This 103-nucleotide RNA sequence from Flaviflexus ciconiae belongs to the Rfam family "SAM (S-adenosyl methionine) riboswitch aptamer".
Pairs were carried over by alignment from the consensus structure, which is taken from published work.
The organism belongs to Flaviflexus, within Bacteria.
Its family is annotated with S-adenosylmethionine metabolic process and regulation of gene expression in the Gene Ontology.

[Rfam]
RNA sequence: GGUCCAGAGAACCAGCGAAGAGCCCCGGCUAGCUGGUCGACAACCCCUCACGUGCGAGGGGUGCCCCGGGUGAUGACCAGGCCUCAAUCGGCAAGCGAAGCAC
Numbered sequence: 001g002g003u004c005c006a007g008a009g010a011a012c013c014a015g016c017g018a019a020g021a022g023c024c025c026c027g028g029c030u031a032g033c034u035g036g037u038c039g040a041c042a043a044c045c046c047c048u049c050a051c052g053u054g055c056g057a058g059g060g061g062u063g064c065c066c067c068g069g070g071u072g073a074u075g076a077c078c079a080g081g082c083c084u085c086a087a088u089c090g091g092c093a094a095g096c097g098a099a100g101c102a103c
Stems, first nucleotide, its partner, number of pairs: 001078004009038001011037006021030002039065001041063001044061003048057002081092003